[Rfam]
This 194-nucleotide RNA sequence from Pseudomonas rhizosphaerae belongs to the Rfam family "Pseudomonas sRNA P27". The match comes from Rfam's covariance-model search (196 bits). By type it is a small RNA.
RNA sequence: CGGGUUCAACUCCUGCUUGUUACCGUUUCAUCCAACCGGGGCCGGAUGUCGUUUUGGUGUCUGAUUCGGUAAGGAACCGGGAGCACCAUCUGCGUAGGCUUGAGGUUUAAGACUUGCGUCGCCUACGGUCUUGGAUAGCCCCCGCCAGGCAGGGACCCCAAUUUUUUCAGCUGGUGGAACGGUUCCCCGCCCCA
Number, nucleotide and partner (000 for none) at each position: 001c000002g158003g157004g156005u155006u154007c153008a000009a000010c000011u000012c149013c148014u147015g146016c000017u000018u000019g000020u000021u000022a000023c000024c051025g050026u000027u000028u000029c048030a047031u046032c045033c044034a000035a000036c041037c000038g000039g000040g000041g036042c000043c000044g033045g032046a031047u030048g029049u000050c025051g024052u000053u000054u000055u088056g087057g086058u085059g084060u083061c080062u079063g078064a000065u076066u075067c074068g000069g000070u000071a000072a000073g000074g067075a066076a065077c000078c063079g062080g061081g000082a000083g060084c059085a058086c057087c056088a055089u000090c000091u000092g145093c144094g143095u000096a000097g140098g139099c138100u137101u000102g000103a000104g000105g136106u135107u134108u133109a132110a131111g130112a129113c128114u127115u000116g000117c000118g000119u000120c000121g000122c000123c000124u000125a000126c000127g114128g113129u112130c111131u110132u109133g108134g107135a106136u105137a100138g099139c098140c097141c000142c000143c094144g093145c092146c015147a014148g013149g012150c000151a000152g000153g007154g006155a005156c004157c003158c002159c000160a000161a000162u000163u000164u000165u000166u000167u000168c000169a000170g000171c000172u000173g000174g000175u000176g193177g192178a000179a000180c189181g188182g000183u000184u000185c000186c000187c000188c181189g180190c000191c000192c177193c176194a000